[Rfam]
This 144-nucleotide sequence from Gossypium mustelinum belongs to the Rfam family "MIR7502 microRNA precursor family". The family has 6 seed sequences and 74,505 matches in Rfam 15.1. A search with the family's covariance model found it, with a score of 77 bits.
RNA sequence: UGUUAAAAAUUCAAUCCAUUUCUACGGUUAAAAACUAGUUUAUGUACGUCAACAUACGAGGUACACAUGGCACAAGUGUUACUGUUUGAUUAUUUCGUUAGCCACACUAGUUUUUAACAGUAUAAAUGGAUAAAAUUUUUAAUA
Numbered sequence: 001u002g003u004u005a006a007a008a009a010u011u012c013a014a015u016c017c018a019u020u021u022c023u024a025c026g027g028u029u030a031a032a033a034a035c036u037a038g039u040u041u042a043u044g045u046a047c048g049u050c051a052a053c054a055u056a057c058g059a060g061g062u063a064c065a066c067a068u069g070g071c072a073c074a075a076g077u078g079u080u081a082c083u084g085u086u087u088g089a090u091u092a093u094u095u096c097g098u099u100a101g102c103c104a105c106a107c108u109a110g111u112u113u114u115u116a117a118c119a120g121u122a123u124a125a126a127u128g129g130a131u132a133a134a135a136u137u138u139u140u141a142a143u144a
Stems, first nucleotide, its partner, number of pairs: 002143010014131003018127004023122003028117008